[Rfam]
RNA sequence: CUGUAAGUGGAAAAAAAUCGCCCGGUCUUGGUUUUUUAGAACCUACUGCUGCUGUUAAAACAACAGUGUCGCCGUAGCGGACAAGUGCUGCGCCGCUUGCUUGUUUUGCUAGUUGUCCUACUUCGAUAGACAGUUUCUGACCUGCCCAUUCUGUACUGAAAACUUGUUUUUCGUUUGUCAUUUUUACGCUCCUUUAGGAAACGCAUGGCUCACGGUCUAAACUUUAUCUUGCAUAAUAUGCUUCACGCACACCUUCAUUCAAAGGCACACAUAAAUCCAAAAACCUAAGUCAAAUUGCUUUGGGUCACGUUUUUGGAUUCAUG
Numbered sequence: 001c002u003g004u005a006a007g008u009g010g011a012a013a014a015a016a017a018u019c020g021c022c023c024g025g026u027c028u029u030g031g032u033u034u035u036u037u038a039g040a041a042c043c044u045a046c047u048g049c050u051g052c053u054g055u056u057a058a059a060a061c062a063a064c065a066g067u068g069u070c071g072c073c074g075u076a077g078c079g080g081a082c083a084a085g086u087g088c089u090g091c092g093c094c095g096c097u098u099g100c101u102u103g104u105u106u107u108g109c110u111a112g113u114u115g116u117c118c119u120a121c122u123u124c125g126a127u128a129g130a131c132a133g134u135u136u137c138u139g140a141c142c143u144g145c146c147c148a149u150u151c152u153g154u155a156c157u158g159a160a161a162a163c164u165u166g167u168u169u170u171u172c173g174u175u176u177g178u179c180a181u182u183u184u185u186a187c188g189c190u191c192c193u194u195u196a197g198g199a200a201a202c203g204c205a206u207g208g209c210u211c212a213c214g215g216u217c218u219a220a221a222c223u224u225u226a227u228c229u230u231g232c233a234u235a236a237u238a239u240g241c242u243u244c245a246c247g248c249a250c251a252c253c254u255u256c257a258u259u260c261a262a263a264g265g266c267a268c269a270c271a272u273a274a275a276u277c278c279a280a281a282a283a284c285c286u287a288a289g290u291c292a293a294a295u296u297g298c299u300u301u302g303g304g305u306c307a308c309g310u311u312u313u314u315g316g317a318u319u320c321a322u323g
Base pairs, nucleotide, nucleotide: 003266004265008262010260011259012258014225015224016223018221022215023214024213025210027079029077030043031042032041033040034039047068048067049066050065051064053062054061055060102205103204104203106201107200109197110196111195112194122160123159124158125157126154127153128152129151130150136144165177166176169173230249231248232247270323271322272321274319275318276317277316278315279314280313281312282311283310284309288305
Dot-bracket structure: ..((...(.(((.(((.(...((((.(.((((((....)))))...(((((.(((....))).)))))........).)......................(((.((.((((.........(((((((((.....(.......).....)))))..))))....((..(...)..))................))))..)).)))....)..))).....).)))....(((..............)))........))).)..))...(((.(((((((((((...(................)...))))))))))).)))